Annotation
A member of the RNA family "Actinobacteria sRNA Ms_IGR-5" from Nocardiopsis algeriensis, 183 nucleotides long. The match comes from Rfam's covariance-model search (84 bits).
RNA sequence: ACGCAGGAAAGGAGGUGGUCCGGAAGAUGAUUUCUCCCAGGACUUGCGAGGUGUCCGUCCGCUAGGACGACGCAUCGGCGUCGUUCGCGGCGAAUACCAGACGGACACCCGGACCCCGGGCUGCCGGAACUUGUCCGACCGGCCCCGCCGCACCGGCGGGAAGCAGCCCGGGGUUCGUCCUGC
Numbered sequence: 001a002c003g004c005a006g007g008a009a010a011g012g013a014g015g016u017g018g019u020c021c022g023g024a025a026g027a028u029g030a031u032u033u034c035u036c037c038c039a040g041g042a043c044u045u046g047c048g049a050g051g052u053g054u055c056c057g058u059c060c061g062c063u064a065g066g067a068c069g070a071c072g073c074a075u076c077g078g079c080g081u082c083g084u085u086c087g088c089g090g091c092g093a094a095u096a097c098c099a100g101a102c103g104g105a106c107a108c109c110c111g112g113a114c115c116c117c118g119g120g121c122u123g124c125c126g127g128a129a130c131u132u133g134u135c136c137g138a139c140c141g142g143c144c145c146c147g148c149c150g151c152a153c154c155g156g157c158g159g160g161a162a163g164c165a166g167c168c169c170g171g172g173g174u175u176c177g178u179c180c181u182g183c
Stems, first nucleotide, its partner, number of pairs: 014059005060092004065086004070081003110177013123143005